RNA: Streptomyces sRNA 4677
RNA sequence: CGCCCCGGUCGGACCGGCGCUCCCCAAGAACAACCCACCGGGGAAAAAGCACCCCACCAAGCCCCACCCCUCCCUCCCGCGGGGCAGCGUCACUCCGGCGAGUGAAUAUGCCCAACUGGGCUGGAUUCGCACCCGGUUGCGUGCCCUACGCUCAGCGCCAGCAGCACGCGACAACUCCAGACAUGCGACGGCCCUCGCCGGGACUGCCAUCCCACUGCGAGGGCCUGACCACCGAGGAAGGAAACAGCUUCCCG
Numbered sequence: 001c002g003c004c005c006c007g008g009u010c011g012g013a014c015c016g017g018c019g020c021u022c023c024c025c026a027a028g029a030a031c032a033a034c035c036c037a038c039c040g041g042g043g044a045a046a047a048a049g050c051a052c053c054c055c056a057c058c059a060a061g062c063c064c065c066a067c068c069c070c071u072c073c074c075u076c077c078c079g080c081g082g083g084g085c086a087g088c089g090u091c092a093c094u095c096c097g098g099c100g101a102g103u104g105a106a107u108a109u110g111c112c113c114a115a116c117u118g119g120g121c122u123g124g125a126u127u128c129g130c131a132c133c134c135g136g137u138u139g140c141g142u143g144c145c146c147u148a149c150g151c152u153c154a155g156c157g158c159c160a161g162c163a164g165c166a167c168g169c170g171a172c173a174a175c176u177c178c179a180g181a182c183a184u185g186c187g188a189c190g191g192c193c194c195u196c197g198c199c200g201g202g203a204c205u206g207c208c209a210u211c212c213c214a215c216u217g218c219g220a221g222g223g224c225c226u227g228a229c230c231a232c233c234g235a236g237g238a239a240g241g242a243a244a245c246a247g248c249u250u251c252c253c254g
Stems, first nucleotide, its partner, number of pairs: 007233003016077002019074001090105006120156005190225005196219003200213004236252005